[Rfam]
RNA sequence: CUCUUAUCCUGAGCUGGUGGAGGGACAGGCCCAAUGAAGCCCAGCAACCAUCACUAGGAAAGAUAUAGGUGAACGGUGCUAACCUGCAAGGCUCAAUGCCUUGAAGAUAAGAG
Numbered sequence: 001c002u003c004u005u006a007u008c009c010u011g012a013g014c015u016g017g018u019g020g021a022g023g024g025a026c027a028g029g030c031c032c033a034a035u036g037a038a039g040c041c042c043a044g045c046a047a048c049c050a051u052c053a054c055u056a057g058g059a060a061a062g063a064u065a066u067a068g069g070u071g072a073a074c075g076g077u078g079c080u081a082a083c084c085u086g087c088a089a090g091g092c093u094c095a096a097u098g099c100c101u102u103g104a105a106g107a108u109a110a111g112a113g
Base pairs, nucleotide, nucleotide: 001113002112003111004110005109006108007107008106013042016041017040018039022032023031024030026086027085028084029083043080044079045078046077048076049075051072052071053070054069087103088102089101090100091099092098
Record summary: The record is a 113-nucleotide RNA sequence from Texcoconibacillus texcoconensis, which matches "SAM riboswitch aptamer (S box leader)" in Rfam. Rfam describes the family as follows. The SAM riboswitch is found upstream of a number of genes which code for proteins involved in methionine or cysteine biosynthesis in Gram-positive bacteria. It scores 77 bits against the family's covariance model.